[Rfam]
RNA sequence: GAUUGCACAUGAUGAAUUAUAAGUUAUCCCUGUCUUAUUGAACCAUGCAGAUGAGAACUUACUGAAGCAAUU
Numbered sequence: 001g002a003u004u005g006c007a008c009a010u011g012a013u014g015a016a017u018u019a020u021a022a023g024u025u026a027u028c029c030c031u032g033u034c035u036u037a038u039u040g041a042a043c044c045a046u047g048c049a050g051a052u053g054a055g056a057a058c059u060u061a062c063u064g065a066a067g068c069a070a071u072u
Stems, first nucleotide, its partner, number of pairs: 001072006
RNA: Small nucleolar RNA R38
Organism: Strigamia maritima